[Rfam]
RNA sequence: CAGAGCAGUGAUGAGUUGCACAGAUCUGUAAUGAUUUGUGGUUAUGGUUGCAAUGUUUAAGAGCAUCUUAGGGACUGAAUUUUC
Numbered sequence: 001c002a003g004a005g006c007a008g009u010g011a012u013g014a015g016u017u018g019c020a021c022a023g024a025u026c027u028g029u030a031a032u033g034a035u036u037u038g039u040g041g042u043u044a045u046g047g048u049u050g051c052a053a054u055g056u057u058u059a060a061g062a063g064c065a066u067c068u069u070a071g072g073g074a075c076u077g078a079a080u081u082u083u084c
Stems, first nucleotide, its partner, number of pairs: 002083004
Shown here is an 84-nucleotide RNA from Hevea brasiliensis, a member of the family "Small nucleolar RNA SNORD25". On this family, see Qu et al., Nucleic Acids Res 2001: "Identification of 10 novel snoRNA gene clusters from Arabidopsis thaliana". NCBI's taxonomy places the organism under Eukaryota, Tracheophyta, Spermatophyta, Malpighiales, Hevea. Gene Ontology terms of the family: RNA processing and nucleolus. Pairs were carried over by alignment from the consensus structure, which was predicted with PFOLD. A search with the family's covariance model found it, with a score of 46 bits.